[Rfam]
Shown here is a 78-nucleotide sequence from Crocodylus porosus, a member of the family "Mammalian CPEB3 ribozyme". The organism belongs to Crocodylus, within Eukaryota.
RNA sequence: UGAACUUCCAUAACGGCCAUAGCAGGAGCAUUCACAACACAGCCCUUGUCAGAUUUCAACAACUCUGCGAAUACUGCU
Numbered sequence: 001u002g003a004a005c006u007u008c009c010a011u012a013a014c015g016g017c018c019a020u021a022g023c024a025g026g027a028g029c030a031u032u033c034a035c036a037a038c039a040c041a042g043c044c045c046u047u048g049u050c051a052g053a054u055u056u057c058a059a060c061a062a063c064u065c066u067g068c069g070a071a072u073a074c075u076g077c078u
Stems, first nucleotide, its partner, number of pairs: 013046001015044003021078005027072001028040001050067004055062002

Pairs were carried over by alignment from the consensus structure, which is taken from published work. From the family's description: The mammalian CPEB3 ribozyme is a self cleaving RNA located in the second intron of the CPEB3 gene which belongs to a family of genes regulating messenger RNA polyadenylation. This ribozyme is highly conserved and found only in mammals. The match comes from Rfam's covariance-model search (48 bits).